[Rfam]
RNA sequence: GCAAGGAACUGGUCGCCCGGUCCAGCGACUUUCUCGAUGGGCAACUGGACUUCCGCGGACAACUGGCGGUGCGCAGCCACCUGCUCAUGUGCGGGCAUUGCCGGCGCUUCAUCCGCCAGAUGCGCCUGACCCAGGCGACCGUGCGCCAUCUGCCGGAAGGGCAGGGGCCGGAACUCGACCGCCUGGCCGCGCAUCUCUCCGAGUUGCGCAAGGACGCCGCGCGGCGCUGAGCCGGGGUACCCUCGACACCAAGCCGCCGCCCGCGAUUCGUGGGCGGCGGCU
Numbered sequence: 001g002c003a004a005g006g007a008a009c010u011g012g013u014c015g016c017c018c019g020g021u022c023c024a025g026c027g028a029c030u031u032u033c034u035c036g037a038u039g040g041g042c043a044a045c046u047g048g049a050c051u052u053c054c055g056c057g058g059a060c061a062a063c064u065g066g067c068g069g070u071g072c073g074c075a076g077c078c079a080c081c082u083g084c085u086c087a088u089g090u091g092c093g094g095g096c097a098u099u100g101c102c103g104g105c106g107c108u109u110c111a112u113c114c115g116c117c118a119g120a121u122g123c124g125c126c127u128g129a130c131c132c133a134g135g136c137g138a139c140c141g142u143g144c145g146c147c148a149u150c151u152g153c154c155g156g157a158a159g160g161g162c163a164g165g166g167g168c169c170g171g172a173a174c175u176c177g178a179c180c181g182c183c184u185g186g187c188c189g190c191g192c193a194u195c196u197c198u199c200c201g202a203g204u205u206g207c208g209c210a211a212g213g214a215c216g217c218c219g220c221g222c223g224g225c226g227c228u229g230a231g232c233c234g235g236g237g238u239a240c241c242c243u244c245g246a247c248a249c250c251a252a253g254c255c256g257c258c259g260c261c262c263g264c265g266a267u268u269c270g271u272g273g274g275c276g277g278c279g280g281c282u
Stems, first nucleotide, its partner, number of pairs: 011241003016236005023229005034138003038133004042128002047054002055125003060122002063119007073084004089107004094102003139224006145187003150164003153160002165184004170179001189209005196202002252282014

Shown here is a 282-nucleotide sequence from Pseudomonas aeruginosa, a member of the family "Pseudomonas sRNA P17". For this family Rfam cites "Identification of 17 Pseudomonas aeruginosa sRNAs and prediction of sRNA-encoding genes in 10 diverse pathogens using the bioinformatic tool sRNAPredict2" (Livny et al., Nucleic Acids Res, 2006). The family's RNA type in Rfam is small RNA. The source organism's lineage runs through Bacteria, Pseudomonadota, Pseudomonadales, Pseudomonadaceae and Pseudomonas aeruginosa.